[Rfam]
RNA sequence: UCCCUCCGAAUCCCUUUCCCAUCAGAUCUGAAUACCGAUCUUGUGGUCGAAAAAGGAGGAAGAGUAAAAUUCAUGCUGGUCUUGGGCUCUCUGCAGGUGUGUUCUGUGCUGAGAGGGGCCACUAGGAAGACAGGC
Numbered sequence: 001u002c003c004c005u006c007c008g009a010a011u012c013c014c015u016u017u018c019c020c021a022u023c024a025g026a027u028c029u030g031a032a033u034a035c036c037g038a039u040c041u042u043g044u045g046g047u048c049g050a051a052a053a054a055g056g057a058g059g060a061a062g063a064g065u066a067a068a069a070u071u072c073a074u075g076c077u078g079g080u081c082u083u084g085g086g087c088u089c090u091c092u093g094c095a096g097g098u099g100u101g102u103u104c105u106g107u108g109c110u111g112a113g114a115g116g117g118g119c120c121a122c123u124a125g126g127a128a129g130a131c132a133g134g135c
Stems, first nucleotide, its partner, number of pairs: 003059005019046003023043001025040004079135004
RNA: Small nucleolar RNA SNORA61